[Rfam]
Shown here is an 84-nucleotide RNA sequence from Tetranychus urticae, a member of the family "mir-137 microRNA precursor family". Its family is annotated with RISC complex and miRNA-mediated post-transcriptional gene silencing in the Gene Ontology.
RNA sequence: AGUGAACAAAGUGUAUUCCUGGGCUAAUAACAUGUUAAACUUUUUGAAAUAUUCUGUUAUUGCUUGAGAAUACACGUUGUCUCU
Numbered sequence: 001a002g003u004g005a006a007c008a009a010a011g012u013g014u015a016u017u018c019c020u021g022g023g024c025u026a027a028u029a030a031c032a033u034g035u036u037a038a039a040c041u042u043u044u045u046g047a048a049a050u051a052u053u054c055u056g057u058u059a060u061u062g063c064u065u066g067a068g069a070a071u072a073c074a075c076g077u078u079g080u081c082u083c084u
Stems, first nucleotide, its partner, number of pairs: 001084002004081002009077001011075001013073006020066005026061007034052001
The source organism's lineage runs through Eukaryota, Bilateria, Ecdysozoa, Acariformes and Tetranychus. A reference for the family is Ruby et al. (2007), "Evolution, biogenesis, expression, and target predictions of a substantially expanded set of Drosophila microRNAs", Genome Res. The family's consensus secondary structure was predicted with RNAalifold.